Rfam assigns this 86-nucleotide RNA from Neodiprion lecontei to the family "mir-46/mir-47/mir-281 microRNA precursor family". Rfam 15.1 lists 307 matches to the family in 262 species. Lineage of the source: Eukaryota > Eumetazoa > Pancrustacea > Insecta > Neodiprion. For this family Rfam cites "Computational identification of Drosophila microRNA genes" (Lai et al., Genome Biol, 2003).
RNA sequence: UGGCGGGCGCUAUGAAGAGAGCUAUCCAUCGACAGUAUGGUAAUGUUUGACACUGUCAUGGAGUUGCUCUCUUUGUCGACGCCGCC
Numbered sequence: 001u002g003g004c005g006g007g008c009g010c011u012a013u014g015a016a017g018a019g020a021g022c023u024a025u026c027c028a029u030c031g032a033c034a035g036u037a038u039g040g041u042a043a044u045g046u047u048u049g050a051c052a053c054u055g056u057c058a059u060g061g062a063g064u065u066g067c068u069c070u071c072u073u074u075g076u077c078g079a080c081g082c083c084g085c086c
Stems, first nucleotide, its partner, number of pairs: 014074005020068003025062004031057003035053002